A member of the RNA family "nhaA-I RNA" from Bordetella genomosp. 5, 57 nucleotides long. NCBI's taxonomy places the organism under Bacteria, Pseudomonadati, Burkholderiales, Alcaligenaceae, Bordetella. Acidobacteria, Alphaproteobacteria, Betaproteobacteria and Gammaproteobacteria, Verrucomicrobia, cand. division NC10. It scores 51 bits against the family's covariance model. Rfam classes the family as a riboswitch.
Nucleotides: 057
Stems, first nucleotide, its partner, number of pairs: 005027008038057007
Number, partner (000 for none) and nucleotide at each position: 001000g002000g003000g004000u005027u006026u007025c008024g009023g010022u011021c012020u013000c014000a015000u016000g017000u018000u019000g020012a021011g022010g023009c024008c025007g026006g027005g028000a029000g030000g031000u032000u033000c034000u035000u036000a037000g038057c039056g040055u041054u042053g043052g044051u045000c046000g047000g048000g049000c050000c051044g052043c053042c054041a055040a056039u057038g